[Rfam]
RNA sequence: GCCGAGAGGGCGGAGAAUAUAAUACUCGUAAGAGAAAUAAUCCCAGCCGGACUUGUUGCGGUUUUCGAACCUCUUGGCAACCCUAC
Number, nucleotide and partner (000 for none) at each position: 001g078002c077003c076004g075005a074006g073007a072008g071009g070010g000011c000012g000013g044014a000015g042016a041017a000018u000019a000020u000021a000022a000023u000024a000025c034026u033027c032028g000029u000030a000031a000032g027033a026034g025035a000036a000037a000038u000039a000040a000041u016042c015043c000044c013045a063046g062047c061048c060049g059050g000051a000052c000053u000054u000055g000056u000057u000058g000059c049060g048061g047062u046063u045064u000065u000066c000067g000068a000069a000070c009071c008072u007073c006074u005075u004076g003077g002078c001079a000080a000081c000082c000083c000084u000085a000086c000
The record is an 86-nucleotide RNA sequence from Phocoenobacter uteri, which matches "sRNA-Xcc1" in Rfam. Taxonomically the source falls in Phocoenobacter (Bacteria, Pseudomonadati, Gammaproteobacteria, Pasteurellaceae). It scores 67 bits against the family's covariance model.